[Rfam]
RNA sequence: CGACGGCUGUUCCUCUCGCUGCCAUAAGGUUUGGGUGGUGCGAUUUUAGGCUGUCGUAGAUCAAAGUGACCUUCUUCACUCAGGAUGGCACUUGAACUUUUCAUGUGUGCCUUCUGAAUUUUGCGGGGUCAGACAGAC
Numbered sequence: 001c002g003a004c005g006g007c008u009g010u011u012c013c014u015c016u017c018g019c020u021g022c023c024a025u026a027a028g029g030u031u032u033g034g035g036u037g038g039u040g041c042g043a044u045u046u047u048a049g050g051c052u053g054u055c056g057u058a059g060a061u062c063a064a065a066g067u068g069a070c071c072u073u074c075u076u077c078a079c080u081c082a083g084g085a086u087g088g089c090a091c092u093u094g095a096a097c098u099u100u101u102c103a104u105g106u107g108u109g110c111c112u113u114c115u116g117a118a119u120u121u122u123g124c125g126g127g128g129u130c131a132g133a134c135a136g137a138c
Base pairs, nucleotide, nucleotide: 001056002055003054004053005052006051007050008049014043015042017040018039020037021036022035023034068130069129070128071127072126073125080117081116082115083114084113085112087111088110089109090108094102
The record is a 138-nucleotide RNA sequence from Geotrypetes seraphini, which matches "Small nucleolar RNA SNORA79" in Rfam. ACA65 (SNORA79) is a member of the H/ACA class of snoRNAs that guide the sites of modification of uridines to pseudouridines. This snoRNA was identified by computational screening and its expression in mouse experimentally verified by Northern blot and primer extension analysis. The source organism's lineage runs through Eukaryota, Eumetazoa, Craniata, Sarcopterygii and Geotrypetes.